[Rfam]
RNA sequence: GGAUCGAGGGGCGGCCCGUGGGACGGCCGUCGCGGAUGGAUCCCCGGCGAUUCCCCUGUGAGCGGACCUCCCGCCGCGGCCCCGGCGGCCGGGAGG
Numbered sequence: 001g002g003a004u005c006g007a008g009g010g011g012c013g014g015c016c017c018g019u020g021g022g023a024c025g026g027c028c029g030u031c032g033c034g035g036a037u038g039g040a041u042c043c044c045c046g047g048c049g050a051u052u053c054c055c056c057u058g059u060g061a062g063c064g065g066a067c068c069u070c071c072c073g074c075c076g077c078g079g080c081c082c083c084g085g086c087g088g089c090c091g092g093g094a095g096g
Base pairs, nucleotide, nucleotide: 001043002042003041004040005039010031011030012029013028014027015026016025067096068095069094070093071092073089074088075087076086

The family of this 96-nucleotide sequence from Rubellimicrobium thermophilum is "Rhodo-rpoB RNA". It is annotated as a cis-regulatory element. The organism belongs to Rubellimicrobium thermophilum, within Bacteria.